[Rfam]
RNA: Plastid-psbN 5UTR RNA
RNA sequence: AAAAACUCCCAUUAGUCCAGUUGUUCCCCAACCAGGAGCAACUUUACCAUACUCAGAGUUU
Numbered sequence: 001a002a003a004a005a006c007u008c009c010c011a012u013u014a015g016u017c018c019a020g021u022u023g024u025u026c027c028c029c030a031a032c033c034a035g036g037a038g039c040a041a042c043u044u045u046a047c048c049a050u051a052c053u054c055a056g057a058g059u060u061u
Base pairs, nucleotide, nucleotide: 019043020042021041022040023039024038025037026036027035